Group II catalytic intron D1-D4-6: a 224-nucleotide sequence.
RNA sequence: AAAAUCCUCUGCUCGGAAAGAGCUAGCAACUCGCCGAGACUCCGAGUCAUGGGCUGUUUAUCGUAAGGUAACCGGUUAAGCGUUGACAGGGGAAAGUGCAGGCUCAGUAUUGAGCUCCGAAAUCAUGACUUGAGUAGGCAGACCUUGUAGGGUGAAGGGGAAUGCAAUAUUAACUGUUGCGCUAUUUGCGAGCGACAAUUUAGCUGCUCCGGAGUCCUAGACCU
Numbered sequence: 001a002a003a004a005u006c007c008u009c010u011g012c013u014c015g016g017a018a019a020g021a022g023c024u025a026g027c028a029a030c031u032c033g034c035c036g037a038g039a040c041u042c043c044g045a046g047u048c049a050u051g052g053g054c055u056g057u058u059u060a061u062c063g064u065a066a067g068g069u070a071a072c073c074g075g076u077u078a079a080g081c082g083u084u085g086a087c088a089g090g091g092g093a094a095a096g097u098g099c100a101g102g103c104u105c106a107g108u109a110u111u112g113a114g115c116u117c118c119g120a121a122a123u124c125a126u127g128a129c130u131u132g133a134g135u136a137g138g139c140a141g142a143c144c145u146u147g148u149a150g151g152g153u154g155a156a157g158g159g160g161a162a163u164g165c166a167a168u169a170u171u172a173a174c175u176g177u178u179g180c181g182c183u184a185u186u187u188g189c190g191a192g193c194g195a196c197a198a199u200u201u202a203g204c205u206g207c208u209c210c211g212g213a214g215u216c217c218u219a220g221a222c223c224u
Stems, first nucleotide, its partner, number of pairs: 012038005020032003024191001026189002040092004046087004050082002052077005058071005112216001114215006132209006138165003143159004170203004175197006